[Rfam]
RNA sequence: UUAAUUUAAUAGCAAAACAAUCGAAAGGUUGUGACGCAAAAACCUGAAUUUAAGGAUAAACUCUAAGAUUGUCAGGUCUGCCUCA
Number, nucleotide and partner (000 for none) at each position: 001u000002u000003a000004a000005u000006u000007u000008a000009a000010u000011a000012g037013c036014a000015a000016a000017a032018c031019a030020a029021u028022c027023g000024a000025a000026a000027g022028g021029u020030u019031g018032u017033g000034a000035c000036g013037c012038a000039a000040a079041a000042a077043c076044c000045u074046g073047a072048a069049u068050u067051u000052a000053a000054g000055g063056a062057u000058a000059a000060a000061c000062u056063c055064u000065a000066a000067g050068a049069u048070u000071g000072u047073c046074a045075g000076g043077u042078c000079u040080g000081c000082c000083u000084c000085a000

Notes
A member of the RNA family "c-di-GMP-I riboswitch aptamer" from Halanaerobacter jeridensis, 85 nucleotides long.